[Rfam]
RNA sequence: CACACGUCAGGGCUAACUUGAUGAAAGUCAGGGGCGCAAAGUCACGGGCCUGUGAUCCGUUCCGCGGAUUAUGGCAGCCGGGCUGCAUUC
Numbered sequence: 001c002a003c004a005c006g007u008c009a010g011g012g013c014u015a016a017c018u019u020g021a022u023g024a025a026a027g028u029c030a031g032g033g034g035c036g037c038a039a040a041g042u043c044a045c046g047g048g049c050c051u052g053u054g055a056u057c058c059g060u061u062c063c064g065c066g067g068a069u070u071a072u073g074g075c076a077g078c079c080g081g082g083c084u085g086c087a088u089u090c
Base pairs, nucleotide, nucleotide: 012037013036017032018031019030020029021028022027040084041083042082043081045080046079047078048075049074050073055069056068057067058066
RNA: c-di-GMP-I riboswitch aptamer